[Rfam]
RNA sequence: AGCAGGGAGAUAACCCGUCAAAAAAGCGUGAACCGGCAGCGUCAGGCAGAGCGCGGCCGGUGAAC
Numbered sequence: 001a002g003c004a005g006g007g008a009g010a011u012a013a014c015c016c017g018u019c020a021a022a023a024a025a026g027c028g029u030g031a032a033c034c035g036g037c038a039g040c041g042u043c044a045g046g047c048a049g050a051g052c053g054c055g056g057c058c059g060g061u062g063a064a065c
Base pairs, nucleotide, nucleotide: 032061033060034059035058036057037056039054040053042050043049
This 65-nucleotide RNA sequence from Mangrovibacter sp. MFB070 belongs to the Rfam family "DnaX ribosomal frameshifting element".
The source organism's lineage runs through Bacteria, Pseudomonadati, Gammaproteobacteria, Enterobacterales and Mangrovibacter.
By type it is a frameshift element.
From the family's description: This family represents a ribosomal frameshifting element found in the mRNA of the dnaX gene in E. coli. The dnaX gene has two encoded products tau and gamma which are produced in a 1:1 ratio. The gamma protein is synthesised due to programmed frameshifting and is shorter than tau.
The family's consensus secondary structure is taken from published work.